[Rfam]
RNA: Bacterial RNase P class A
RNA sequence: GAAGCUAACUAGACAAUCGCUGCUUUGUAGUAACAAAGGAGAGGAAAGUCCGGGCUCCAUAGGGCAGAGUGCCAGUUAAUAUCUGGGAGACGUGAGUCUACGACUAGUGCCACAGAAAACAAACCGCCUUAUUUAUUAAGUAUUUAUAUAAUUAAAUUAAGUAAGGUAAGGGUGAAAAGGUGUGGUAAGAGCACACCACAACACUGGUAACAGUGUUGGUAGGGUAAACUCCACUCGGAGCAAGACCAAAUAGGGGUUAUAUAUAUAAGUACGGCCCGUAUGAUGAACCCGGGUAGGUCGCUUGAGCUAGAAAGUGAUUUUUAGUUUAGAUGAAUGAUUGUCCAAGACAGAACCCGGCUUAUCGGUUAGCUUCUGCU
Numbered sequence: 001g002a003a004g005c006u007a008a009c010u011a012g013a014c015a016a017u018c019g020c021u022g023c024u025u026u027g028u029a030g031u032a033a034c035a036a037a038g039g040a041g042a043g044g045a046a047a048g049u050c051c052g053g054g055c056u057c058c059a060u061a062g063g064g065c066a067g068a069g070u071g072c073c074a075g076u077u078a079a080u081a082u083c084u085g086g087g088a089g090a091c092g093u094g095a096g097u098c099u100a101c102g103a104c105u106a107g108u109g110c111c112a113c114a115g116a117a118a119a120c121a122a123a124c125c126g127c128c129u130u131a132u133u134u135a136u137u138a139a140g141u142a143u144u145u146a147u148a149u150a151a152u153u154a155a156a157u158u159a160a161g162u163a164a165g166g167u168a169a170g171g172g173u174g175a176a177a178a179g180g181u182g183u184g185g186u187a188a189g190a191g192c193a194c195a196c197c198a199c200a201a202c203a204c205u206g207g208u209a210a211c212a213g214u215g216u217u218g219g220u221a222g223g224g225u226a227a228a229c230u231c232c233a234c235u236c237g238g239a240g241c242a243a244g245a246c247c248a249a250a251u252a253g254g255g256g257u258u259a260u261a262u263a264u265a266u267a268a269g270u271a272c273g274g275c276c277c278g279u280a281u282g283a284u285g286a287a288c289c290c291g292g293g294u295a296g297g298u299c300g301c302u303u304g305a306g307c308u309a310g311a312a313a314g315u316g317a318u319u320u321u322u323a324g325u326u327u328a329g330a331u332g333a334a335u336g337a338u339u340g341u342c343c344a345a346g347a348c349a350g351a352a353c354c355c356g357g358c359u360u361a362u363c364g365g366u367u368a369g370c371u372u373c374u375g376c377u
Stems, first nucleotide, its partner, number of pairs: 001373010011362001012342007020041002023038006046360003050357005055240004062277004067236005072086004087101001088099004102231002107229002109225003124171002126167009179197006198220001199218008244299004254290005269281004306325008
Dot-bracket structure: ((((((((((((((((((.((.((((((....)))))).))....[[[.[[[[[((((...[[[[.(((((((((.......))))(((((....)))).)((...(((((............(((((((((((........................)))))))))..)).......((((((.......))))))(((((((((....)))))))).)..)))..)))))))))))))...((((......(((((..........((((.]]]]))))....))))).....))))......((((((((....))))))))..........)))))))..........]]]]]]]].).))))))))))....